[Rfam]
RNA: Purine riboswitch aptamer
RNA sequence: AAAUAAAUAGUAUUGUGCCUUCAUAUAAGUCUGGUAAUAUGGUCCAGAUGUUUCUACUAAGUUACCCUAAAUAACUUAUCUAUGACGGUGGGUCCCACUAUA
Numbered sequence: 001a002a003a004u005a006a007a008u009a010g011u012a013u014u015g016u017g018c019c020u021u022c023a024u025a026u027a028a029g030u031c032u033g034g035u036a037a038u039a040u041g042g043u044c045c046a047g048a049u050g051u052u053u054c055u056a057c058u059a060a061g062u063u064a065c066c067c068u069a070a071a072u073a074a075c076u077u078a079u080c081u082a083u084g085a086c087g088g089u090g091g092g093u094c095c096c097a098c099u100a101u102a
Base pairs, nucleotide, nucleotide: 018088019087021085022084023083024082025081029049030048031047032046033045034044058078059077060076061075062074063073064072